The family of this 130-nucleotide RNA sequence from Clostridium fallax is "Ribosomal protein L10 leader".
The source organism's lineage runs through Bacteria, Bacillota, Eubacteriales, Clostridiaceae and Clostridium.
It scores 70 bits against the family's covariance model.

RNA sequence: UGAAAUUGAAUAAAACUUCCGUAGACAGUAGGUGCAGAGGCAUAACGUAAAUCAACCUACCGAGGGUUCCGAUACAUGUGAUUGUAAUGGGUCUUCCUGCGUCUACGGGAAGACCUUUCUUAAUAUAACA
Numbered sequence: 001u002g003a004a005a006u007u008g009a010a011u012a013a014a015a016c017u018u019c020c021g022u023a024g025a026c027a028g029u030a031g032g033u034g035c036a037g038a039g040g041c042a043u044a045a046c047g048u049a050a051a052u053c054a055a056c057c058u059a060c061c062g063a064g065g066g067u068u069c070c071g072a073u074a075c076a077u078g079u080g081a082u083u084g085u086a087a088u089g090g091g092u093c094u095u096c097c098u099g100c101g102u103c104u105a106c107g108g109g110a111a112g113a114c115c116u117u118u119c120u121u122a123a124u125a126u127a128a129c130a
Stems, first nucleotide, its partner, number of pairs: 028060006034041002090115010